[Rfam]
RNA sequence: UAGAAUAAGGUAGAUAAGGGAAGUCGGCAAAAUAGAUCCGUAACUUCGGGAAAAGGAUUGGCUCUGAGGGCUGGGUACAUUGCGCCCCAGUGGCCUGUAUUUGACGGAGCUUGGGACUGCUUCAUGCUUCGCGGCGUGUUGCGGACCCGAGCACUGUCUGUAUUGCGCUCUGGGGAAAAGGUCCAUCUCCCUUUCCGGGGUCUUGGGCUGUGCGUGUACGGUGAACAGCUAACUCAGAACUGGAGCGGACAAGGGGAAUCCGACUGUUUAAUUAAAACAAAGCAUUGCGAUGGCCAUAACUGGUGUUGACGCAAUGUGAUUUCUGCCCAGUGCUCUGAAUGUCAAUGUGAUGAAAUUCAAUCAAGCGCGGGUAAACGGCGGGAGUAACUAUGACUCUCUUAAGGUAGCCAAAUGCCUCGUCAUCUAAUUAGUGACGCGCAUGAAUGGAUUAACGAGAUUCCCACUGUCCCUAUCUACUAUCUAGCGAAACCACAGCCAAGGGAACGGGCUUGGCAGA
Dot-bracket structure: ((((....((((((((.(((..............(((((....(....).....)))))((.(((((((((((.(((((.(((((((.((.(....((((..(((((.(((((((.((((..((((((....))))))..)))).))))))).))))).))))....).)).)))...................................)))))))))......)))))..)))))).))(...).......(((((((((..(((.........)))..((((((((...((((....)))).....))))))))...(((.(((..((((((.(..(((.....(((......))).....))))))))..)))))((((((.......))))))(...)...............(((((.......)))))..........)))....)).)))))))....))).)))))))).))))............(((((........)))))....
Eukaryotic large subunit ribosomal RNA: a 517-nucleotide part of an RNA from Neospora caninum. A reference for the family is Cannone et al. (2002), "The comparative RNA web (CRW) site: an online database of comparative sequence and structure information for ribosomal, intron, and other RNAs", BMC Bioinformatics.